[Rfam]
This 104-nucleotide RNA sequence from Croceimicrobium hydrocarbonivorans belongs to the Rfam family "SAM riboswitch aptamer (S box leader)". Rfam links the family to the GO term regulation of gene expression. Lineage of the source: Bacteria > Pseudomonadati > Bacteroidota > Flavobacteriia > Croceimicrobium.

RNA sequence: UACUUAUCCAGAAAGACGGAGGGAUUGGGCCCUGUGAUGUCUUAGCAACCCCUUAGGGCGGGUGCUACUUCCCACCUCAGCAAUUUGCGGAGGAAAGAUGAGAG
Numbered sequence: 001u002a003c004u005u006a007u008c009c010a011g012a013a014a015g016a017c018g019g020a021g022g023g024a025u026u027g028g029g030c031c032c033u034g035u036g037a038u039g040u041c042u043u044a045g046c047a048a049c050c051c052c053u054u055a056g057g058g059c060g061g062g063u064g065c066u067a068c069u070u071c072c073c074a075c076c077u078c079a080g081c082a083a084u085u086u087g088c089g090g091a092g093g094a095a096a097g098a099u100g101a102g103a104g
Stems, first nucleotide, its partner, number of pairs: 001104001003102006013043005021032003026074004044066004049062002051058002070096001075093004080088001
Rfam's curators write: The SAM riboswitch is found upstream of a number of genes which code for proteins involved in methionine or cysteine biosynthesis in Gram-positive bacteria.